Shown here is a 117-nucleotide RNA sequence from Aureimonas pseudogalii, a member of the family "Alphaproteobacterial ar14". Gene Ontology term of the family: biological process involved in symbiotic interaction. A search with the family's covariance model found it, with a score of 62 bits. Rfam's curators write: Smr14C2 was renamed NfeR1 (Nodule Formation Efficiency RNA) highly expressed in salt stress and during the symbiotic interaction on legume roots.
RNA sequence: GAAUUUCGCGAGGGCCCAUCCUCCUCCCAACGGACCCGAGCGGAUCAGCGCCGGCGGUUCCUCCCACCGCAGGCGACCACACGACACCCGCCGGUCCUCCCCCGGCGGGUGUUGUCG
Numbered sequence: 001g002a003a004u005u006u007c008g009c010g011a012g013g014g015c016c017c018a019u020c021c022u023c024c025u026c027c028c029a030a031c032g033g034a035c036c037c038g039a040g041c042g043g044a045u046c047a048g049c050g051c052c053g054g055c056g057g058u059u060c061c062u063c064c065c066a067c068c069g070c071a072g073g074c075g076a077c078c079a080c081a082c083g084a085c086a087c088c089c090g091c092c093g094g095u096c097c098u099c100c101c102c103c104g105g106c107g108g109g110u111g112u113u114g115u116c117g
Base pairs, nucleotide, nucleotide: 007042008041009040012037013036014035016033017032049075050074051073052072054070055069056068057067058066084112085111086110087109088108089107090106091105092104093103094102